antisense RNA of dnaA mRNA: an 81-nucleotide sequence from Parahaliea aestuarii. The match comes from Rfam's covariance-model search (52 bits). Taxonomically the source falls in Parahaliea (Bacteria, Pseudomonadati, Cellvibrionales, Halieaceae). The family's consensus secondary structure was predicted with RNAfold.

RNA sequence: CUUGGCAUCGGGCUUCUGCGCCCGCAGGGCAUUGCCCACCGCGUGCAUCAGGUGGGUCUUGCCCAGGCCGACGCCACCGUA
Numbered sequence: 001c002u003u004g005g006c007a008u009c010g011g012g013c014u015u016c017u018g019c020g021c022c023c024g025c026a027g028g029g030c031a032u033u034g035c036c037c038a039c040c041g042c043g044u045g046c047a048u049c050a051g052g053u054g055g056g057u058c059u060u061g062c063c064c065a066g067g068c069c070g071a072c073g074c075c076a077c078c079g080u081a
Stems, first nucleotide, its partner, number of pairs: 005042002010037004017031002021028001051078004056074002061072001063070001